[Rfam]
RNA sequence: CUUUUUUACGCAUAAUACACCACCUCCAUACAUUUUACUGUUCCUGUUAUAAUAGUGACAGGUAUAGAAAAACGUAUUGUAUAGUUGUACAGUUCCUAUUAUGCGUAUCAAAGAUAAAACUAUGCUGCUGAAACGGAAAUAAAAAAAACCGUUAUUUGGCAGUACACUUUUCUUGCGUCAAAAUCUCAUAAAUCUUUCCAGACGACGGUUUGACAAAAGCCGCCGUCUUUCUUUUUUCCAGAAUA
Numbered sequence: 001c002u003u004u005u006u007u008a009c010g011c012a013u014a015a016u017a018c019a020c021c022a023c024c025u026c027c028a029u030a031c032a033u034u035u036u037a038c039u040g041u042u043c044c045u046g047u048u049a050u051a052a053u054a055g056u057g058a059c060a061g062g063u064a065u066a067g068a069a070a071a072a073c074g075u076a077u078u079g080u081a082u083a084g085u086u087g088u089a090c091a092g093u094u095c096c097u098a099u100u101a102u103g104c105g106u107a108u109c110a111a112a113g114a115u116a117a118a119a120c121u122a123u124g125c126u127g128c129u130g131a132a133a134c135g136g137a138a139a140u141a142a143a144a145a146a147a148a149c150c151g152u153u154a155u156u157u158g159g160c161a162g163u164a165c166a167c168u169u170u171u172c173u174u175g176c177g178u179c180a181a182a183a184u185c186u187c188a189u190a191a192a193u194c195u196u197u198c199c200a201g202a203c204g205a206c207g208g209u210u211u212g213a214c215a216a217a218a219g220c221c222g223c224c225g226u227c228u229u230u231c232u233u234u235u236u237u238c239c240a241g242a243a244u245a
Stems, first nucleotide, its partner, number of pairs: 001113004007107002011103001013101005028077004033072004038067004043062008078091005123164009133152004200228005206222006

This 245-nucleotide RNA from Clostridioides difficile belongs to the Rfam family "Cis-regulator of HTH transcription factor". This element was identified by RNA deep sequencing of Clostridioides difficile 630 where it is located immediately upstream of an uncharacterized HTH-type Transcriptional regulator. Homologues are found widely across firmicutes, consistently located 5' of transcriptional regulators of similar size and sequence, which strongly supports a cis-regulatory function. RNA is referred to as CD630_SQ2397 in ref. Note: the sequence is highly conserved and shows no evidence for covariation as per R-scape analysis. Pairs were carried over by alignment from the consensus structure, which was predicted with LocARNA. The family's RNA type in Rfam is cis-regulatory element. Taxonomically the source falls in Clostridioides (Bacteria, Clostridia, Peptostreptococcales, Peptostreptococcaceae). For this family Rfam cites "Genome-wide identification of regulatory RNAs in the human pathogen Clostridium difficile" (Soutourina et al., PLoS Genet, 2013).